[Rfam]
RNA sequence: CUCUUAUCAAGAGAGGUGGAGGGAAGUGCCCUAUGAAACCCGGCAACCGUCAGUAAGCAUUGCUUGCUGAAAUGGUGCCAAUUCACACAAAGCGGAUCGCUUUGGCAGAUGAGAG
Numbered sequence: 001c002u003c004u005u006a007u008c009a010a011g012a013g014a015g016g017u018g019g020a021g022g023g024a025a026g027u028g029c030c031c032u033a034u035g036a037a038a039c040c041c042g043g044c045a046a047c048c049g050u051c052a053g054u055a056a057g058c059a060u061u062g063c064u065u066g067c068u069g070a071a072a073u074g075g076u077g078c079c080a081a082u083u084c085a086c087a088c089a090a091a092g093c094g095g096a097u098c099g100c101u102u103u104g105g106c107a108g109a110u111g112a113g114a115g
Stems, first nucleotide, its partner, number of pairs: 001115008013041001015040003021031003026086003042079004047075002050070007083107001088104006
RNA: SAM riboswitch aptamer (S box leader)